This 280-nucleotide sequence from Nannospalax galili belongs to the Rfam family "Mason-Pfizer monkey virus packaging signal".
For this family Rfam cites "Mutational analysis of the predicted secondary RNA structure of the Mason-Pfizer monkey virus packaging signal" (Mustafa et al., Virus Res, 2004).
From the family's description: This family represents a group of sequences that are related to the Mason-Pfizer monkey virus (MPMV) packaging signal.
A search with the family's covariance model found it, with a score of 162 bits.
The source organism's lineage runs through Eukaryota, Euteleostomi, Tetrapoda, Muroidea and Nannospalax.
Nucleotides: 280
Base pairs, nucleotide, nucleotide: 006032007031008030012027013025014024037051038050040048089133091131097122098121102118103117104116105115106114140158144155145154146153164207165206166205167203169201214256215255216254217253218252219251220250224242225241226240227239228238265280267278268277269276270275
Number, partner (000 for none) and nucleotide at each position: 001000u002000g003000g004000c005000a006032c007031c008030c009000a010000a011000c012027a013025u014024g015000g016000u017000g018000g019000c020000u021000g022000g023000a024014u025013a026000c027012u028000g029000g030008g031007g032006g033000c034000a035000c036000a037051u038050c039000a040048u041000g042000g043000g044000g045000g046000a047000g048040a049000c050038g051037a052000c053000g054000g055000a056000g057000a058000a059000a060000a061000a062000g063000g064000a065000g066000u067000a068000c069000a070000c071000u072000c073000a074000c075000u076000a077000a078000a079000u080000c081000u082000c083000a084000a085000a086000g087000a088000a089133u090000u091131c092000g093000g094000a095000g096000a097122c098121g099000c100000g101000c102118c103117g104116u105115g106114g107000g108000a109000g110000c111000c112000u113000g114106c115105c116104a117103c118102g119000a120000c121098c122097g123000a124000a125000c126000c127000g128000a129000a130000a131091g132000u133089a134000a135000g136000u137000c138000a139000a140158u141000u142000c143000g144155c145154c146153c147000u148000a149000u150000c151000a152000u153146g154145g155144g156000u157000c158140a159000a160000g161000a162000a163000u164207u165206g166205a167203g168000c169201c170000a171000g172000c173000a174000u175000c176000a177000g178000a179000u180000g181000u182000a183000u184000g185000u186000c187000a188000a189000g190000c191000a192000a193000u194000u195000g196000a197000g198000a199000g200000a201169g202000a203167c204000u205166u206165u207164a208000a209000a210000g211000a212000c213000a214256c215255g216254a217253g218252g219251a220250g221000u222000a223000a224242a225241g226240g227239u228238u229000a230000g231000g232000a233000c234000u235000g236000u237000g238228g239227g240226u241225u242224u243000a244000u245000u246000u247000c248000a249000u250220u251219u252218c253217u254216u255215u256214g257000a258000u259000u260000u261000u262000g263000u264000a265280a266000a267278g268277g269276a270275c271000a272000u273000u274000u275270g276269u277268c278267c279000c280265u